[Rfam]
Small nucleolar RNA SNORA31: a 137-nucleotide RNA sequence from Perca flavescens.
Rfam classes the family as an H/ACA-box small nucleolar RNA.
The match comes from Rfam's covariance-model search (51 bits).
Its family is annotated with RNA processing and nucleolus in the Gene Ontology.
The organism belongs to Perca, within Eukaryota.
Rfam 15.1 lists 2,094 matches to the family in 626 species.
From the family's description: ACA31 (SNORA31) belongs to the H/ACA class of snoRNAs which are thought to guide the sites of modification of uridines to pseudouridines.

RNA sequence: CUGCAUCUUUGACAGCCUGGGCUCUCUGGUUGUGAGAUAUCCUGGGUUUUAAUAUUUCAGAUGCAAUAUUAAAUGUCCCUGCGCUUUCUGCUCGCUUCUUUUCCGUGGCGUCUCAGAUUGAAUCGGGGAGGAUAACU
Numbered sequence: 001c002u003g004c005a006u007c008u009u010u011g012a013c014a015g016c017c018u019g020g021g022c023u024c025u026c027u028g029g030u031u032g033u034g035a036g037a038u039a040u041c042c043u044g045g046g047u048u049u050u051a052a053u054a055u056u057u058c059a060g061a062u063g064c065a066a067u068a069u070u071a072a073a074u075g076u077c078c079c080u081g082c083g084c085u086u087u088c089u090g091c092u093c094g095c096u097u098c099u100u101u102u103c104c105g106u107g108g109c110g111u112c113u114c115a116g117a118u119u120g121a122a123u124c125g126g127g128g129a130g131g132a133u134a135a136c137u
Stems, first nucleotide, its partner, number of pairs: 002065007010051002014048005023037004076129006084120001087117004093110004